[Rfam]
RNA: mir-3661 microRNA precursor family
RNA sequence: CUCGCAGAGGCUCUUAACCUGGGACUCGAACAGCUGCUUGCACUCGUUCAGCUGCUCGAUCCACUGGUCCAGCUCUCCACUGGU
Dot-bracket structure: .(((..(.((..((..(((.((((.((((.((((((...((....)).)))))).))))))).).)))..))..)).)..))).